The record is a 103-nucleotide sequence from Aliikangiella marina, which matches "t44 RNA" in Rfam. Rfam describes the family as follows. This family consists of a number of bacterial RNA genes of between 135 and 170 bases in length. The t44 gene has been identified in several species of enteric bacteria but homologs have also been identified in Pseudomonas and Coxiella species. The t44 gene is found between the map and rpsB genes in all species in the full alignment apart from Shigella flexneri. The function of this RNA is unknown.

[Rfam]
Nucleotides: 103
Base pairs, nucleotide, nucleotide: 023093024092025091026090027089028088029087030086035084036083037082038081039080040079041078042077043076048075049074050073051072052071053070054069055068056067
Number, partner (000 for none) and nucleotide at each position: 001000g002000u003000c004000g005000u006000u007000u008000g009000g010000c011000a012000c013000c014000u015000a016000a017000u018000u019000c020000a021000c022000a023093c024092g025091c026090u027089g028088u029087u030086c031000g032000u033000c034000a035084c036083g037082a038081c039080u040079a041078u042077c043076a044000g045000g046000g047000u048075g049074c050073u051072u052071c053070a054069a055068u056067u057000g058000a059000g060000a061000u062000u063000a064000u065000c066000a067056a068055a069054u070053u071052g072051a073050a074049g075048u076043u077042g078041g079040u080039a081038g082037u083036u084035g085000g086030g087029a088028a089027u090026a091025g092024c093023g094000g095000a096000g097000g098000c099000a100000a101000a102000a103000c